[Rfam]
RNA sequence: AACUGCCAUAAUGGCCAUAGCAGAAACAUUCAGAGUGUGGCCCCUGUCAGAUUCCAAUGAAUUUGUGAAUUCUGCU
Dot-bracket structure: ............[[[[..((((((((((.......)))]]]].....(((((((....)))))))....)))))))